[Rfam]
RNA: Caulobacter sRNA CrfA
Organism: Asticcacaulis excentricus
RNA sequence: GAGAACGGAACUUCGCCAGAGAGAUGAAGUCAGUUCCCGGCGUUUCGGGGAGGAAACGCCUGCUUAACAAGGAAAGAGGCCCGGCAUUGCUUAUCCCCCAUGCCGGGCCUCUUUUCGUUUGU
Numbered sequence: 001g002a003g004a005a006c007g008g009a010a011c012u013u014c015g016c017c018a019g020a021g022a023g024a025u026g027a028a029g030u031c032a033g034u035u036c037c038c039g040g041c042g043u044u045u046c047g048g049g050g051a052g053g054a055a056a057c058g059c060c061u062g063c064u065u066a067a068c069a070a071g072g073a074a075a076g077a078g079g080c081c082c083g084g085c086a087u088u089g090c091u092u093a094u095c096c097c098c099c100a101u102g103c104c105g106g107g108c109c110u111c112u113u114u115u116c117g118u119u120u121g122u
Stems, first nucleotide, its partner, number of pairs: 001037001003035002007031001012028004017023001039060008064121001066119003074113013088100002